[Rfam]
RNA sequence: AUUGGUACCCUAACACUAGCAUUGACUUUUCUACGUAAUGCAUUAAGUGCUACUUGUUGGGAUAGUUUGA
Numbered sequence: 001a002u003u004g005g006u007a008c009c010c011u012a013a014c015a016c017u018a019g020c021a022u023u024g025a026c027u028u029u030u031c032u033a034c035g036u037a038a039u040g041c042a043u044u045a046a047g048u049g050c051u052a053c054u055u056g057u058u059g060g061g062a063u064a065g066u067u068u069g070a
Base pairs, nucleotide, nucleotide: 004066006064007063009061010060011059013057014056015055018051019050020049021048022047023046025044027042

The family of this 70-nucleotide sequence from Hucho hucho is "miR-430 microRNA precursor family". The organism belongs to Hucho, within Eukaryota. The match comes from Rfam's covariance-model search (54 bits). Clan: mir-290 clan.